[Rfam]
RNA sequence: AAAAGAUGAACAAAGGCUAAACACGUAACGACCUCGAAAAAGGAUUAUACUUUUUCUUCGUGCGAUGCAUCGCUGCAGAACCUUUCCUUGUCCUGUGACAACGCCUUUGUCACCUGCAUCUUGUCGG
Numbered sequence: 001a002a003a004a005g006a007u008g009a010a011c012a013a014a015g016g017c018u019a020a021a022c023a024c025g026u027a028a029c030g031a032c033c034u035c036g037a038a039a040a041a042g043g044a045u046u047a048u049a050c051u052u053u054u055u056c057u058u059c060g061u062g063c064g065a066u067g068c069a070u071c072g073c074u075g076c077a078g079a080a081c082c083u084u085u086c087c088u089u090g091u092c093c094u095g096u097g098a099c100a101a102c103g104c105c106u107u108u109g110u111c112a113c114c115u116g117c118a119u120c121u122u123g124u125c126g127g
Base pairs, nucleotide, nucleotide: 011109012108013107014106015105016104017103025099026098028096029095113127114126116124117123

Rfam assigns this 127-nucleotide RNA from Lentibacillus halodurans to the family "Bacillaceae-1 RNA". The family has 95 seed sequences and 5,721 matches in Rfam 15.1. It scores 39 bits against the family's covariance model. The base pairs follow the family's consensus structure, which is taken from published work.